The record is a 108-nucleotide RNA sequence from Heliornis fulica, which matches "MIR480 microRNA precursor family" in Rfam. Rfam 15.1 lists 3,070 matches to the family in 171 species. The source organism's lineage runs through Eukaryota, Opisthokonta, Eumetazoa, Chordata and Heliornis.
[Rfam]
RNA sequence: UAACUUUUCAAGGGUGGGAUUUCUUUUUUUCUUAAGAGAGCAAUAACUGACAAGAAUAGUUUGUUAUAACUAGAUAGGAGAACUAAUGCUUUUAUUUAGGAUUUAGGA
Numbered sequence: 001u002a003a004c005u006u007u008u009c010a011a012g013g014g015u016g017g018g019a020u021u022u023c024u025u026u027u028u029u030u031c032u033u034a035a036g037a038g039a040g041c042a043a044u045a046a047c048u049g050a051c052a053a054g055a056a057u058a059g060u061u062u063g064u065u066a067u068a069a070c071u072a073g074a075u076a077g078g079a080g081a082a083c084u085a086a087u088g089c090u091u092u093u094a095u096u097u098a099g100g101a102u103u104u105a106g107g108a
Stems, first nucleotide, its partner, number of pairs: 004106002008101002012097001014095002018091002024086002027082005